[Rfam]
RNA sequence: CUGAGGUGAGGUAGUAGGUUGUAUAGUUGAGAAGUACAUCAUUGGAGAUAACUGUGCAACCUGCUAGCUCUCCUUGG
Numbered sequence: 001c002u003g004a005g006g007u008g009a010g011g012u013a014g015u016a017g018g019u020u021g022u023a024u025a026g027u028u029g030a031g032a033a034g035u036a037c038a039u040c041a042u043u044g045g046a047g048a049u050a051a052c053u054g055u056g057c058a059a060c061c062u063g064c065u066a067g068c069u070c071u072c073c074u075u076g077g
Stems, first nucleotide, its partner, number of pairs: 001077006008070003012066016032039001040047001
RNA: let-7 microRNA precursor family
Organism: Branchiostoma floridae